RNA: permuted transfer-messenger RNA
Organism: Stenotrophomonas sp. CFBP 13725
RNA sequence: GGCUGUAUGAAGCAAAGAGGAGGCGUUGCGGACGCGGGUUCGAGUCCCGCCAGCUCCACCACGUGAGUAUUGGGGGGCCAAUGCUCAGCUGAAGGGGCUGUAUUGGUUUCGACGUGGCGAGUAAUCAGCGUGGACAGCUCGGGAGGCGACCGACGUUACCGGCGCAAAAACCAUAAUCGCCAGUAACGACGAUUAUCGUCAGGUCCUUAAAGCGGCCUGA
Numbered sequence: 001g002g003c004u005g006u007a008u009g010a011a012g013c014a015a016a017g018a019g020g021a022g023g024c025g026u027u028g029c030g031g032a033c034g035c036g037g038g039u040u041c042g043a044g045u046c047c048c049g050c051c052a053g054c055u056c057c058a059c060c061a062c063g064u065g066a067g068u069a070u071u072g073g074g075g076g077g078c079c080a081a082u083g084c085u086c087a088g089c090u091g092a093a094g095g096g097g098c099u100g101u102a103u104u105g106g107u108u109u110c111g112a113c114g115u116g117g118c119g120a121g122u123a124a125u126c127a128g129c130g131u132g133g134a135c136a137g138c139u140c141g142g143g144a145g146g147c148g149a150c151c152g153a154c155g156u157u158a159c160c161g162g163c164g165c166a167a168a169a170a171c172c173a174u175a176a177u178c179g180c181c182a183g184u185a186a187c188g189a190c191g192a193u194u195a196u197c198g199u200c201a202g203g204u205c206c207u208u209a210a211a212g213c214g215g216c217c218u219g220a
Base pairs, nucleotide, nucleotide: 001139002138003137004136005135012129013128024119025118026117028115029114030113034050035049036048037047038046051100052099053098054097055096056095057094140155141154